[Rfam]
RNA sequence: CAGGCGGUUACCGAAAAGCCUCUAUUAGAGUAGGUA
Dot-bracket structure: .((((....[[[.....))))...........]]].
Description: A member of the RNA family "DUF805b RNA" from Hymenobacter ginkgonis, 36 nucleotides long. The family is grouped with related families in Rfam's "DUF805 clan". The family's consensus secondary structure is taken from published work. The organism belongs to Hymenobacter, within Bacteria. A search with the family's covariance model found it, with a score of 42 bits.